[Rfam]
RNA sequence: GGUUCCACAGGUGAUGGGGUUCCACCUACUUAACCGCCAAUUUGGCUGAUGACUCCUACAGAAAC
Numbered sequence: 001g002g003u004u005c006c007a008c009a010g011g012u013g014a015u016g017g018g019g020u021u022c023c024a025c026c027u028a029c030u031u032a033a034c035c036g037c038c039a040a041u042u043u044g045g046c047u048g049a050u051g052a053c054u055c056c057u058a059c060a061g062a063a064a065c
Stems, first nucleotide, its partner, number of pairs: 010026004016056006036046003
RNA: Fluoride riboswitch aptamer (crcB RNA motif)